[Rfam]
RNA sequence: UGACGGGGGCCCGCACAAGCGGUGGAGCAUGUGGUUUAAUUCGAUGCAAAGCGAAGAACCUUACCAGGGCUUGACAUGCCGCGAAUCCUCUUGAAAGAGAGGGGUGCCUUCGGGAACGCGGACACAGGUGGUGCAUGGCUGUCGUCAGCUCGUGCCGUAAGGUGUUGGGUUAAGUCCCGCAACGAGCGCAACCCUCGUGUUUAGUUGCCACGUUGAGUUUGGAACCCUGAACAGACUGCCGGUGAUAAGCCGGAGGAAGGUGAGGAUGACGUCAAGUCAUCAUGCCCCUUAUGCCCUGGGCGACACACGUGCUACAAUGGCCGGGACAAAGGGUCGCGAUCCCGCGAGGGUGAGCUAACCCCAAAAACCCGUCCUCAGUUCGGAUUGCAGGCUGCAACUCGCCUGCAUGAAGCCGGAAUCGCUAGUAAUCGCCGGUCAGCCAUACGGCGGUGAAUUCGUUCCCGGGCCUUGUACACACCGCCCGUCACACUAUGGGAGCUGGCCAUGCCCGAAGUCGUUACCUUAACCGCAAGGAGGGGGAUGCCGAAGGCAGGGCUAGUGACUGGAGUGAAGUCGUAACAAGG
Numbered sequence: 001u002g003a004c005g006g007g008g009g010c011c012c013g014c015a016c017a018a019g020c021g022g023u024g025g026a027g028c029a030u031g032u033g034g035u036u037u038a039a040u041u042c043g044a045u046g047c048a049a050a051g052c053g054a055a056g057a058a059c060c061u062u063a064c065c066a067g068g069g070c071u072u073g074a075c076a077u078g079c080c081g082c083g084a085a086u087c088c089u090c091u092u093g094a095a096a097g098a099g100a101g102g103g104g105u106g107c108c109u110u111c112g113g114g115a116a117c118g119c120g121g122a123c124a125c126a127g128g129u130g131g132u133g134c135a136u137g138g139c140u141g142u143c144g145u146c147a148g149c150u151c152g153u154g155c156c157g158u159a160a161g162g163u164g165u166u167g168g169g170u171u172a173a174g175u176c177c178c179g180c181a182a183c184g185a186g187c188g189c190a191a192c193c194c195u196c197g198u199g200u201u202u203a204g205u206u207g208c209c210a211c212g213u214u215g216a217g218u219u220u221g222g223a224a225c226c227c228u229g230a231a232c233a234g235a236c237u238g239c240c241g242g243u244g245a246u247a248a249g250c251c252g253g254a255g256g257a258a259g260g261u262g263a264g265g266a267u268g269a270c271g272u273c274a275a276g277u278c279a280u281c282a283u284g285c286c287c288c289u290u291a292u293g294c295c296c297u298g299g300g301c302g303a304c305a306c307a308c309g310u311g312c313u314a315c316a317a318u319g320g321c322c323g324g325g326a327c328a329a330a331g332g333g334u335c336g337c338g339a340u341c342c343c344g345c346g347a348g349g350g351u352g353a354g355c356u357a358a359c360c361c362c363a364a365a366a367a368c369c370c371g372u373c374c375u376c377a378g379u380u381c382g383g384a385u386u387g388c389a390g391g392c393u394g395c396a397a398c399u400c401g402c403c404u405g406c407a408u409g410a411a412g413c414c415g416g417a418a419u420c421g422c423u424a425g426u427a428a429u430c431g432c433c434g435g436u437c438a439g440c441c442a443u444a445c446g447g448c449g450g451u452g453a454a455u456u457c458g459u460u461c462c463c464g465g466g467c468c469u470u471g472u473a474c475a476c477a478c479c480g481c482c483c484g485u486c487a488c489a490c491u492a493u494g495g496g497a498g499c500u501g502g503c504c505a506u507g508c509c510c511g512a513a514g515u516c517g518u519u520a521c522c523u524u525a526a527c528c529g530c531a532a533g534g535a536g537g538g539g540g541a542u543g544c545c546g547a548a549g550g551c552a553g554g555g556c557u558a559g560u561g562a563c564u565g566g567a568g569u570g571a572a573g574u575c576g577u578a579a580c581a582a583g584g
Stems, first nucleotide, its partner, number of pairs: 001475002003472003007469007015459002019422005024315001026313008034304002040055004064299007077124002079121005086103007105116001107114002127288002130286004136282002138277003141273001143271002148187006154163003166179004193265004198233007208222002212220001236256002239253005319374002322371004331362003336355002341350003381412001386407007428451007478583001480580001483576002488570004493565003498560007506552004514545001516543004521539004527534002